[Rfam]
RNA sequence: AACGACCGGCCGGUCACUCGCGUGUCCGGCCCGCAAGUGGAGGCUCCGAACUCCCACCUGACCGACCCCCGGGUCGGCAGGUCAUCGGUCAGGCUGCGCCCCGCGGUGAUAUCGCGGCGGUGCUCCCGGUCAAUGAGGAGCCCCGCCUGUGUACCGUCCGGGGCGUUUUCC
Numbered sequence: 001a002a003c004g005a006c007c008g009g010c011c012g013g014u015c016a017c018u019c020g021c022g023u024g025u026c027c028g029g030c031c032c033g034c035a036a037g038u039g040g041a042g043g044c045u046c047c048g049a050a051c052u053c054c055c056a057c058c059u060g061a062c063c064g065a066c067c068c069c070c071g072g073g074u075c076g077g078c079a080g081g082u083c084a085u086c087g088g089u090c091a092g093g094c095u096g097c098g099c100c101c102c103g104c105g106g107u108g109a110u111a112u113c114g115c116g117g118c119g120g121u122g123c124u125c126c127c128g129g130u131c132a133a134u135g136a137g138g139a140g141c142c143c144c145g146c147c148u149g150u151g152u153a154c155c156g157u158c159c160g161g162g163g164c165g166u167u168u169u170c171c
Base pairs, nucleotide, nucleotide: 004090005089006088007087008086009085012027013026028083029082030081031080034060035059037057038056039055040054041052042051062077063076064075065074066073067072098164099163100162101161102160103159104156105155106154114150115149116147117146118145119144120143122141123140124139125138126137